[Rfam]
RNA sequence: CAGAAAAAUCUGUAAAGCUCAGGAGGGAUAGCGCCGCAACACACCAGGAUUUUUACAUCAUGAUGUAUUUGGCGCUAUCUAUCCUGAGUUUCACGGGUUCUUCUU
Numbered sequence: 001c002a003g004a005a006a007a008a009u010c011u012g013u014a015a016a017g018c019u020c021a022g023g024a025g026g027g028a029u030a031g032c033g034c035c036g037c038a039a040c041a042c043a044c045c046a047g048g049a050u051u052u053u054u055a056c057a058u059c060a061u062g063a064u065g066u067a068u069u070u071g072g073c074g075c076u077a078u079c080u081a082u083c084c085u086g087a088g089u090u091u092c093a094c095g096g097g098u099u100c101u102u103c104u105u
Stems, first nucleotide, its partner, number of pairs: 010096001016090009026080010